[Rfam]
RNA sequence: CGCGCAACAAGACGAAAAGACCCUAUGGAGCUUUACUGUAGCUUGUUAUUGGAUUACGAUUCUCGAUACGUAGGAUAGCUGGGAGACUUUGAAGCAGCCUUUGAGGAGGUUGUGGAGUCAACCGUGAAAUACCAGCUUUUGUGGAUUGUGAUUCUAACCUAUACCCGUGAAUCCGGGUUGGGGACAGUGGCAGGUGGGCAGUUUGACUGGGGCGGUCGCCUCCUAAAGAGUAACGGAGGCGUUCCAAGAUUCCCUCAGCCUGAAUAGAAAUCAGGCAUUGAGCGCAAUGGUAGAAGGGAGUUUGACUGUGAGGAUGACAAUCCGAACAGGUGCGAAAGCAGGACAUAGUGAUCCGGUGGUACCUCGUGGGAGGGCCAUCGCUCAACGGAUAAAAGCUACCCUGGGGAUAACAGGCUGAUCGGGCCCAAGAGUUCACAUCGACGGCUCGGUUUGGCACCUCGAUGUCGGCUCAUCACAUCCUCCCGCUGAAGCAGGUGGGAAGGGUUGGACUGUUCGUCCAUUAAAGUGGUACGUGAGCUGGGUUCAGUACGUCGUGAGACAGUACGGUCUCUAUCUGUUGUGCGCGUA
Number, nucleotide and partner (000 for none) at each position: 001c584002g583003c582004g581005c580006a579007a578008c577009a000010a576011g575012a574013c000014g571015a570016a000017a000018a000019g000020a000021c000022c405023c404024u403025a402026u000027g401028g400029a397030g396031c395032u394033u393034u000035a202036c201037u200038g199039u000040a000041g000042c194043u193044u192045g191046u190047u189048a188049u000050u000051g154052g153053a152054u151055u150056a149057c148058g147059a146060u145061u144062c143063u000064c141065g140066a139067u000068a137069c000070g000071u000072a000073g000074g000075a000076u000077a000078g136079c135080u134081g133082g132083g000084a000085g119086a118087c117088u000089u000090u000091g000092a000093a000094g113095c112096a111097g110098c109099c108100u107101u106102u000103g000104a000105g000106g101107a100108g099109g098110u097111u096112g095113u094114g000115g000116a000117g087118u086119c085120a000121a000122c000123c000124g000125u000126g000127a000128a000129a000130u000131a000132c082133c081134a080135g079136c078137u068138u000139u066140u065141g064142u000143g062144g061145a060146u059147u058148g057149u056150g055151a054152u053153u052154c051155u000156a000157a000158c182159c181160u180161a000162u000163a178164c177165c176166c175167g174168u000169g000170a000171a000172u000173c000174c167175g166176g165177g164178u163179u000180g160181g159182g158183g000184a000185c000186a000187g000188u048189g047190g046191c045192a044193g043194g042195u000196g000197g000198g000199c038200a037201g036202u035203u000204u000205g217206a216207c215208u214209g000210g000211g000212g000213c000214g208215g207216u206217c205218g240219c239220c238221u237222c236223c235224u000225a000226a000227a000228g000229a000230g000231u000232a000233a000234c000235g223236g222237a221238g220239g219240c218241g386242u000243u343244c342245c000246a000247a000248g000249a301250u300251u299252c298253c297254c296255u281256c280257a000258g276259c275260c274261u273262g272263a271264a000265u000266a000267g000268a000269a000270a000271u263272c262273a261274g260275g259276c258277a000278u000279u000280g256281a255282g291283c290284g000285c000286a000287a000288u000289g000290g283291u282292a000293g000294a000295a000296g254297g253298g252299a251300g250301u249302u000303u000304g000305a000306c329307u328308g327309u326310g000311a000312g323313g322314a321315u000316g000317a000318c000319a000320a000321u314322c313323c312324g000325a000326a309327c308328a307329g306330g000331u340332g339333c338334g000335a000336a000337a000338g333339c332340a331341g000342g244343a243344c000345a000346u000347a000348g000349u000350g000351a000352u000353c000354c380355g379356g378357u377358g376359g375360u374361a000362c373363c372364u000365c000366g000367u000368g000369g000370g000371a000372g363373g362374g360375c359376c358377a357378u356379c355380g354381c000382u000383c000384a000385a000386c241387g000388g000389a000390u000391a000392a000393a033394a032395g031396c030397u029398a000399c000400c028401c027402u025403g024404g023405g022406g000407a000408u000409a000410a000411c000412a000413g000414g455415c454416u453417g000418a452419u449420c448421g447422g446423g445424c444425c443426c000427a000428a000429g439430a438431g000432u000433u000434c000435a000436c000437a000438u430439c429440g000441a000442c000443g425444g424445c423446u422447c421448g420449g419450u000451u000452u418453g416454g415455c414456a000457c000458c000459u000460c000461g000462a000463u000464g000465u000466c541467g539468g538469c537470u536471c533472a530473u529474c528475a527476c526477a000478u000479c504480c503481u000482c499483c498484c497485g496486c495487u494488g000489a000490a000491g000492c000493a000494g487495g486496u485497g484498g483499g482500a000501a000502g000503g480504g479505u000506u520507g519508g518509a517510c516511u000512g000513u000514u000515c000516g510517u509518c508519c507520a506521u000522u000523a000524a000525a000526g476527u475528g474529g473530u472531a000532c000533g471534u000535g000536a470537g469538c468539u467540g000541g466542g000543u000544u000545c000546a000547g565548u564549a563550c562551g560552u559553c558554g000555u000556g000557a000558g553559a552560c551561a000562g550563u549564a548565c547566g000567g000568u000569c000570u015571c014572u000573a000574u012575c011576u010577g008578u007579u006580g005581u004582g003583c002584g001585c000586g000587u000588a000
Source information
The record is a 588-nucleotide part of an RNA from Elusimicrobium minutum, which matches "Bacterial large subunit ribosomal RNA" in Rfam. The source organism's lineage runs through Bacteria, Elusimicrobiota, Elusimicrobia, Elusimicrobiales and Elusimicrobium minutum. The family's consensus secondary structure is taken from published work. Rfam links the family to the GO terms structural constituent of ribosome and ribosome.